[Rfam]
RNA: Small nucleolar RNA Z278
RNA sequence: GCCGUAGAUGAUUUAUCUGCAGAAUGGAUUUGUUGUUGAACCAAGUCCCUGCAUACAGGGAGAAUCUACUUGGGAAAGGAGCAACCUAUAUGACAUCAACUAAUACUUCUGAGGC
Numbered sequence: 001g002c003c004g005u006a007g008a009u010g011a012u013u014u015a016u017c018u019g020c021a022g023a024a025u026g027g028a029u030u031u032g033u034u035g036u037u038g039a040a041c042c043a044a045g046u047c048c049c050u051g052c053a054u055a056c057a058g059g060g061a062g063a064a065u066c067u068a069c070u071u072g073g074g075a076a077a078g079g080a081g082c083a084a085c086c087u088a089u090a091u092g093a094c095a096u097c098a099a100c101u102a103a104u105a106c107u108u109c110u111g112a113g114g115c
Stems, first nucleotide, its partner, number of pairs: 001115003047060005
Dot-bracket structure: (((...........................................(((((....)))))....................................................)))